[Rfam]
RNA: glmS glucosamine-6-phosphate activated ribozyme aptamer
Organism: Paenibacillus abyssi
RNA sequence: UUAGCAUCACAAGCGCCAGAGCUAGCAUGGAUCGCCACGGAGAGAUGAAGGGAUCCGGCAAGCUGACGAGGUGGAGGUGUUCGGAAUGUUCGGCGGGGACCUCCCGGUUAGGAUUCAAACCGUAAGCCGAAACGCAAAAAGACCAGGGCGACCGGUCCGACAAGAGUUCGGCAGAAUCAGCU
Numbered sequence: 001u002u003a004g005c006a007u008c009a010c011a012a013g014c015g016c017c018a019g020a021g022c023u024a025g026c027a028u029g030g031a032u033c034g035c036c037a038c039g040g041a042g043a044g045a046u047g048a049a050g051g052g053a054u055c056c057g058g059c060a061a062g063c064u065g066a067c068g069a070g071g072u073g074g075a076g077g078u079g080u081u082c083g084g085a086a087u088g089u090u091c092g093g094c095g096g097g098g099a100c101c102u103c104c105c106g107g108u109u110a111g112g113a114u115u116c117a118a119a120c121c122g123u124a125a126g127c128c129g130a131a132a133c134g135c136a137a138a139a140a141g142a143c144c145a146g147g148g149c150g151a152c153c154g155g156u157c158c159g160a161c162a163a164g165a166g167u168u169c170g171g172c173a174g175a176a177u178c179a180g181c182u
Stems, first nucleotide, its partner, number of pairs: 020064004025059002029055001073104005081093004105122005126172006141157004146153002